[Rfam]
RNA: mir-9230 microRNA precursor family
RNA sequence: CUCCCAACUGUUCUGAACUCCAGUUCCAGGUGAGACUCUGGGGACCCAGACUCAUACGGGGAGAAACUGGACUGUCUGGCAGCAGGCGAAA
Numbered sequence: 001c002u003c004c005c006a007a008c009u010g011u012u013c014u015g016a017a018c019u020c021c022a023g024u025u026c027c028a029g030g031u032g033a034g035a036c037u038c039u040g041g042g043g044a045c046c047c048a049g050a051c052u053c054a055u056a057c058g059g060g061g062a063g064a065a066a067c068u069g070g071a072c073u074g075u076c077u078g079g080c081a082g083c084a085g086g087c088g089a090a091a
Base pairs, nucleotide, nucleotide: 004088008085009084010083011082012081013079014078015077017075018074019071020070021069022068023067024066025062026061027060030055031054032053033052034051037050038049039048040047041046